[Rfam]
RNA sequence: AAAUGUCUUUGGGGCGGGGUGCAAUUCCCCACCGGCGGUUAUGCGGCCUUUGCGCCGACGAGCCCGCGAGCAGUUUUUGUUGACACGGUGCGAUUCCGUGGCCGACGGUACAGUCCGGAUGAAAAAAGACGCAU
Numbered sequence: 001a002a003a004u005g006u007c008u009u010u011g012g013g014g015c016g017g018g019g020u021g022c023a024a025u026u027c028c029c030c031a032c033c034g035g036c037g038g039u040u041a042u043g044c045g046g047c048c049u050u051u052g053c054g055c056c057g058a059c060g061a062g063c064c065c066g067c068g069a070g071c072a073g074u075u076u077u078u079g080u081u082g083a084c085a086c087g088g089u090g091c092g093a094u095u096c097c098g099u100g101g102c103c104g105a106c107g108g109u110a111c112a113g114u115c116c117g118g119a120u121g122a123a124a125a126a127a128g129a130c131g132c133a134u
Stems, first nucleotide, its partner, number of pairs: 004131007017029003031114002033104002035067004062102002070080003084100005106117003
Background
Rfam assigns this 134-nucleotide RNA sequence from Ethanoligenens harbinense to the family "FMN riboswitch aptamer (RFN element)". Lineage of the source: Bacteria > Bacillati > Bacillota > Oscillospiraceae > Ethanoligenens harbinense. A search with the family's covariance model found it, with a score of 114 bits.